[Rfam]
RNA: Small nucleolar RNA SNORA53
Organism: Myripristis murdjan
RNA sequence: GACACGCUCCUUAGAUCCACCUCUGGAGGGCGCUCUUGCUCUGGGCUGUGGUCUCUGUGAGCGGCAGCCCAGCAGCAGAGCUCCUCAGCAGCUUUCUGGCUGUACAGUUGGAGGUGCUUGAGUCAUUGGCGUGUGAGAGCAGUCUACCUGCCACCCAGCCCACCUGCAGCAGUGGCACCUCGGCCCUCCACGGGCAGGGAGCUCCCACUGCUGCGAGGCUGGGGAGCGGACAUG
Numbered sequence: 001g002a003c004a005c006g007c008u009c010c011u012u013a014g015a016u017c018c019a020c021c022u023c024u025g026g027a028g029g030g031c032g033c034u035c036u037u038g039c040u041c042u043g044g045g046c047u048g049u050g051g052u053c054u055c056u057g058u059g060a061g062c063g064g065c066a067g068c069c070c071a072g073c074a075g076c077a078g079a080g081c082u083c084c085u086c087a088g089c090a091g092c093u094u095u096c097u098g099g100c101u102g103u104a105c106a107g108u109u110g111g112a113g114g115u116g117c118u119u120g121a122g123u124c125a126u127u128g129g130c131g132u133g134u135g136a137g138a139g140c141a142g143u144c145u146a147c148c149u150g151c152c153a154c155c156c157a158g159c160c161c162a163c164c165u166g167c168a169g170c171a172g173u174g175g176c177a178c179c180u181c182g183g184c185c186c187u188c189c190a191c192g193g194g195c196a197g198g199g200a201g202c203u204c205c206c207a208c209u210g211c212u213g214c215g216a217g218g219c220u221g222g223g224g225a226g227c228g229g230a231c232a233u234g
Base pairs, nucleotide, nucleotide: 002134003133004132005131006130007129008128010122011121012120013119014118018116019115020114021113022112023111024110025109026086027085028084029083030082034079035078036077041072042071043070045069048065051062088103089102090101091100092099093098148229149228150227151226155222157220158219159218160217167213168212169211170210171209172208173207174206175205177203